[Rfam]
RNA sequence: UGUCGUAGCCCUCCUUGGGCGUUUCCUCCCUAGACUUGGGCCGUUCGUGAUCCGAACGGCCCUUUUUUCUUGCCAAU
Numbered sequence: 001u002g003u004c005g006u007a008g009c010c011c012u013c014c015u016u017g018g019g020c021g022u023u024u025c026c027u028c029c030c031u032a033g034a035c036u037u038g039g040g041c042c043g044u045u046c047g048u049g050a051u052c053c054g055a056a057c058g059g060c061c062c063u064u065u066u067u068u069c070u071u072g073c074c075a076a077u
Base pairs, nucleotide, nucleotide: 008020009019010018011017038062039061040060041059042058043057044056045055046054
Shown here is a 77-nucleotide RNA from Hyphomicrobium sulfonivorans, a member of the family "Makes More Granules Regulator RNA (mmgR)". The family is grouped with related families in Rfam's "suhB sRNA clan". Rfam describes the family as follows. SuhB later renamed mmgR (makes more granules regulator) was a putative non-coding RNA found multiple times in the Agrobacterium tumefaciens genome and related alpha-proteobacteria. Other non-coding RNAs uncovered in the same analysis include: speF, ybhL, metA, and serC.Several studies inSinorhizobium meliloti showed that suhB element is indeed a non-coding RNA:firstly it was detected on Northern blot and called Sm8RNA, secondly in an RNAseq study referred to as SmelC689.The mutant phenotype's (strain lacking the small RNA) cytoplasm contains higher content of polyhydroxybutyrate (PBH)storage granules than wild type strain. The sRNA is required to limit the PBH intracellular accumulation when the nitrogen-fixing Sinorhizobium meliloti is under condition of surplus carbon in relation to nitrogen. It has been renamed to mmgR. Further study confirmed that mmgR fine-tunes the regulation of PBH storage.Northern blot confirmed the expression of the sRNA in other rhizobia species. NCBI's taxonomy places the organism under Bacteria, Pseudomonadati, Hyphomicrobiales, Hyphomicrobiaceae, Hyphomicrobium. It scores 74 bits against the family's covariance model. By type it is a small RNA.